RNA sequence: CGGGUGACCCCGCGCAGCUGCUGACGAACUUCGAGCCGACCUGAGUCGACCACCAGAUCGUCAAUGUCCGAUCGAACCGCGGGUGGAAAUACGGCCCGCGGCCCGAACACGGGAGAGAACGCUGAGCGUCACCAC
Numbered sequence: 001c002g003g004g005u006g007a008c009c010c011c012g013c014g015c016a017g018c019u020g021c022u023g024a025c026g027a028a029c030u031u032c033g034a035g036c037c038g039a040c041c042u043g044a045g046u047c048g049a050c051c052a053c054c055a056g057a058u059c060g061u062c063a064a065u066g067u068c069c070g071a072u073c074g075a076a077c078c079g080c081g082g083g084u085g086g087a088a089a090u091a092c093g094g095c096c097c098g099c100g101g102c103c104c105g106a107a108c109a110c111g112g113g114a115g116a117g118a119a120c121g122c123u124g125a126g127c128g129u130c131a132c133c134a135c
Stems, first nucleotide, its partner, number of pairs: 002051002005048004010043001012041001077101008086092001